Shown here is a 119-nucleotide sequence from a Desulfobacteraceae bacterium, a member of the family "Group II catalytic intron D1-D4-2".

RNA sequence: GAGGGCGGGCCCCUCGGAGUCGGCUUGCAGGAGCAGGCUUCAAACCACCUUAAGCUGCAUCGGUAAAGAGCCGUUGUGGUGAGCGUUAAGGGAAAGGCAUGGCCAAGACCGUGUCAGGU
Numbered sequence: 001g002a003g004g005g006c007g008g009g010c011c012c013c014u015c016g017g018a019g020u021c022g023g024c025u026u027g028c029a030g031g032a033g034c035a036g037g038c039u040u041c042a043a044a045c046c047a048c049c050u051u052a053a054g055c056u057g058c059a060u061c062g063g064u065a066a067a068g069a070g071c072c073g074u075u076g077u078g079g080u081g082a083g084c085g086u087u088a089a090g091g092g093a094a095a096g097g098c099a100u101g102g103c104c105a106a107g108a109c110c111g112u113g114u115c116a117g118g119u
Stems, first nucleotide, its partner, number of pairs: 001015005016041006023034004046118001048091006054080002057077003061073004096115006
The base pairs follow the family's consensus structure.
About the family: Group II introns are found in rRNA, tRNA and mRNA of organelles in fungi, plants and protists, and also in mRNA in bacteria.
On this family, see Bonen and Vogel, Trends Genet 2001: "The ins and outs of group II introns".